[Rfam]
Nucleotides: 074
Stems, first nucleotide, its partner, number of pairs: 011021002041065009
Number, partner (000 for none) and nucleotide at each position: 001000u002000c003000a004000g005000u006000u007000u008000g009000g010000g011021g012020c013000a014000a015000a016000a017000u018000a019000u020012g021011u022000c023000g024000c025000c026000u027000g028000c029000a030000a031000a032000a033000a034000a035000u036000g037000a038000c039000a040000c041065u042064a043063a044062c045061c046060g047059a048058c049057g050000u051000u052000a053000a054000a055000c056000g057049c058048g059047u060046c061045g062044g063043u064042u065041a066000u067000u068000u069000u070000u071000u072000u073000g074000c

This 74-nucleotide sequence from Pseudescherichia vulneris belongs to the Rfam family "Enterobacterial sRNA STnc240". The family's RNA type in Rfam is small RNA.